[Rfam]
Nucleotides: 102
Stems, first nucleotide, its partner, number of pairs: 006102004
Number, partner (000 for none) and nucleotide at each position: 001000g002000g003000a004000g005000g006102u007101u008100g009099c010000g011000a012000u013000g014000a015000g016000g017000a018000u019000u020000c021000a022000c023000a024000g025000c026000u027000c028000c029000c030000u031000c032000u033000u034000c035000c036000g037000a038000u039000u040000u041000a042000u043000g044000u045000c046000g047000u048000u049000g050000a051000a052000g053000a054000a055000a056000u057000c058000a059000g060000c061000u062000g063000g064000c065000u066000g067000a068000a069000u070000c071000g072000a073000a074000c075000c076000u077000a078000u079000g080000a081000c082000u083000u084000a085000a086000u087000c088000g089000c090000c091000a092000c093000u094000a095000c096000u097000g098000a099009g100008c101007a102006a
The family of this 102-nucleotide sequence from Durio zibethinus is "Small nucleolar RNA R30/Z108". Its Rfam clan is "SNORD100 clan". Rfam's curators write: snoR30 is a C/D box small nucleolar RNA which acts as a methylation guide for 18S ribosomal RNA in plants. The literature on the family includes a 2002 paper in Curr Biol by Marker et al., "Experimental RNomics. Identification of 140 Candidates for Small Non-Messenger RNAs in the Plant Arabidopsis thaliana". The family's RNA type in Rfam is C/D-box small nucleolar RNA. NCBI's taxonomy places the organism under Eukaryota, Viridiplantae, Embryophyta, Tracheophyta, Durio. The family's consensus secondary structure was predicted with PFOLD.